The family of this 452-nucleotide RNA sequence from Strigops habroptila is "Vertebrate telomerase RNA". Lineage of the source: Eukaryota > Opisthokonta > Bilateria > Vertebrata > Strigops. Telomerase is a ribonucleoprotein reverse transcriptase that synthesises telomeric DNA. Telomerase RNAs differ greatly in sequence and structure between vertebrates, ciliates and yeasts, but they share a 5' pseudoknot structure close to the template sequence. Vertebrate telomerase RNAs have a 3' H/ACA snoRNA-like domain. The match comes from Rfam's covariance-model search (177 bits). On this family, see Fragnet et al., J Biol Chem 2005: "Comparative functional study of the viral telomerase RNA based on natural mutations". Its Rfam clan is "Telomerase clan".

RNA sequence: UCGCGUGGCGGGUGGGGAGGCUCCAGCCUCACUAACCCUAAUGGCUGCCGCCGCGCUCCCCGCGCCCGUCCGCUGUUUUACUCGCUGACUUUCAGCGGACGGGGGGAGCAGCCCGGGGGGCGGUGGGGGGGAAAGGGGUCUGCCACCAAAAAACGUCAGCGAUGGGCCUCCUCAGCCCGGCCCGCCCCGCCCUGGGGUCUCCGUCCCCCCACGCAGCCGGGGGCCUGCCGCGGAGGCUCCCGCCGCCGCACCGUACGGAGGCCGCGGUCGGCCGGUUCGCGCCACUGCCGCCGCGAAGAGUUCGUCUCUGUCAGCCUCGGCGGCGGUCGGGAGCGGGAGGGCGCGUCCCCGCGCCGGGGGCCCCAGCAGAGCAAAACGGGAGCGGCGCCCUCGGGACAACCGCCGCGCUUCCCUCAGCUGUGGGAUGCACGGACGGCGCCGCUCCGACACGC
Numbered sequence: 001u002c003g004c005g006u007g008g009c010g011g012g013u014g015g016g017g018a019g020g021c022u023c024c025a026g027c028c029u030c031a032c033u034a035a036c037c038c039u040a041a042u043g044g045c046u047g048c049c050g051c052c053g054c055g056c057u058c059c060c061c062g063c064g065c066c067c068g069u070c071c072g073c074u075g076u077u078u079u080a081c082u083c084g085c086u087g088a089c090u091u092u093c094a095g096c097g098g099a100c101g102g103g104g105g106g107a108g109c110a111g112c113c114c115g116g117g118g119g120g121c122g123g124u125g126g127g128g129g130g131g132a133a134a135g136g137g138g139u140c141u142g143c144c145a146c147c148a149a150a151a152a153a154c155g156u157c158a159g160c161g162a163u164g165g166g167c168c169u170c171c172u173c174a175g176c177c178c179g180g181c182c183c184g185c186c187c188c189g190c191c192c193u194g195g196g197g198u199c200u201c202c203g204u205c206c207c208c209c210c211a212c213g214c215a216g217c218c219g220g221g222g223g224c225c226u227g228c229c230g231c232g233g234a235g236g237c238u239c240c241c242g243c244c245g246c247c248g249c250a251c252c253g254u255a256c257g258g259a260g261g262c263c264g265c266g267g268u269c270g271g272c273c274g275g276u277u278c279g280c281g282c283c284a285c286u287g288c289c290g291c292c293g294c295g296a297a298g299a300g301u302u303c304g305u306c307u308c309u310g311u312c313a314g315c316c317u318c319g320g321c322g323g324c325g326g327u328c329g330g331g332a333g334c335g336g337g338a339g340g341g342c343g344c345g346u347c348c349c350c351g352c353g354c355c356g357g358g359g360g361c362c363c364c365a366g367c368a369g370a371g372c373a374a375a376a377c378g379g380g381a382g383c384g385g386c387g388c389c390c391u392c393g394g395g396a397c398a399a400c401c402g403c404c405g406c407g408c409u410u411c412c413c414u415c416a417g418c419u420g421u422g423g424g425a426u427g428c429a430c431g432g433a434c435g436g437c438g439c440c441g442c443u444c445c446g447a448c449a450c451g452c
Stems, first nucleotide, its partner, number of pairs: 004189002007186007015178003019168005055109005067101009084160006090153003192366007221348004226343004236334007245324005263295005269290004274283003297309004380444010403432003407428001410425004